This 117-nucleotide RNA from Rhodococcus sp. SMB37 belongs to the Rfam family "SAM (S-adenosyl methionine) riboswitch aptamer".
The organism belongs to Rhodococcus, within Bacteria.
Rfam's curators write: SAM-IV is a mRNA element that regulates gene expression via direct sensing of S-adenosylmethionine (SAM or AdoMet). SAM-IV riboswitches share conserved nucleotide positions with the previously described SAM-I riboswitches sequence analysis and molecular recognition experiments suggest that SAM-I and SAM-IV riboswitches share similar ligand binding sites, but have different scaffolds.
A reference for the family is Weinberg et al. (2008), "The aptamer core of SAM-IV riboswitches mimics the ligand-binding site of SAM-I riboswitches", RNA.
[Rfam]
RNA sequence: GGUCAUGAGUACCAGCGUCAAGCCCCGGCUCGCUGGUCGGCAACCCUCCGCCGCGGUGGGGUGCUCCGGGUGACGACCUGGCUGACGUACCGAACCUGGGCGCAGCAAGCGCGGACU
Numbered sequence: 001g002g003u004c005a006u007g008a009g010u011a012c013c014a015g016c017g018u019c020a021a022g023c024c025c026c027g028g029c030u031c032g033c034u035g036g037u038c039g040g041c042a043a044c045c046c047u048c049c050g051c052c053g054c055g056g057u058g059g060g061g062u063g064c065u066c067c068g069g070g071u072g073a074c075g076a077c078c079u080g081g082c083u084g085a086c087g088u089a090c091c092g093a094a095c096c097u098g099g100g101c102g103c104a105g106c107a108a109g110c111g112c113g114g115a116c117u
Base pairs, nucleotide, nucleotide: 001078002077003076004075009038011037012036013035014034015033016032021030022029039065040064041063044061045060046059048056049055081106082105083104084103090099091098092097